[Rfam]
A member of the RNA family "mir-133 microRNA precursor family" from Rhynchophorus ferrugineus, 72 nucleotides long. Pairs were carried over by alignment from the consensus structure, which was predicted with PFOLD.
RNA sequence: UAGCUUUAGCUGGUUGACAUCGGGUCAAAUUGAAUUUUCAAUUAUUUGGUCCCCUUCAACCAGCUGUGGUUG
Numbered sequence: 001u002a003g004c005u006u007u008a009g010c011u012g013g014u015u016g017a018c019a020u021c022g023g024g025u026c027a028a029a030u031u032g033a034a035u036u037u038u039c040a041a042u043u044a045u046u047u048g049g050u051c052c053c054c055u056u057c058a059a060c061c062a063g064c065u066g067u068g069g070u071u072g
Base pairs, nucleotide, nucleotide: 003070004069005068008065009064010063011062012061013060014059015058016057017056022051023050025049026048027047028046029045030044
The literature on the family includes a 2002 paper in Curr Biol by Lagos-Quintana et al., "Identification of tissue-specific microRNAs from mouse".